[Rfam]
This 222-nucleotide sequence from Pseudomonas fluvialis belongs to the Rfam family "sucA-II RNA".

RNA sequence: CUGCGGCGGCAGAUUUAACCCUGCCGCCGCAGUCAAUCCAGGGUUCAGGCUCACAAAGCCAGGCCCUAUAACUGAAUAAUAUGAAGACCAGCAGGGGCGACCGGGCUGGUGCCCGGACUAUCUGCGGGAUUCGUAGUGGCUUUACCAAGGUCGCUGCAUCAGGACUUUGCACAGCAGACUGCGUAGUCACCGCUGGUGGUGUCCCCUUACCGAGGGUGACCU
Dot-bracket structure: ((((((((((((........))))))))))))........(((((...(((.....)))..)))))..........................(((((((.(((((......))))).(((((.(((.(((.(..(((..((.(....((.((.........)).))....).))...)))..).).))..))).))))))).)))))...............